[Rfam]
RNA sequence: ACGUCACGAUUAAUGAGGCGUUCAUCCUGACUGAGAAUCAGGCACUGAACGGGGAGUAUUCCAUCGCCGUGCUGAGCACGUAGCUAACUCCUGCAAAAACUCAACACAACCCGCGCCCUGCUACACAUUAUCUGACG
Numbered sequence: 001a002c003g004u005c006a007c008g009a010u011u012a013a014u015g016a017g018g019c020g021u022u023c024a025u026c027c028u029g030a031c032u033g034a035g036a037a038u039c040a041g042g043c044a045c046u047g048a049a050c051g052g053g054g055a056g057u058a059u060u061c062c063a064u065c066g067c068c069g070u071g072c073u074g075a076g077c078a079c080g081u082a083g084c085u086a087a088c089u090c091c092u093g094c095a096a097a098a099a100c101u102c103a104a105c106a107c108a109a110c111c112c113g114c115g116c117c118c119u120g121c122u123a124c125a126c127a128u129u130a131u132c133u134g135a136c137g
Stems, first nucleotide, its partner, number of pairs: 002137004008132003012129004019051006052092004064086001066084002068080005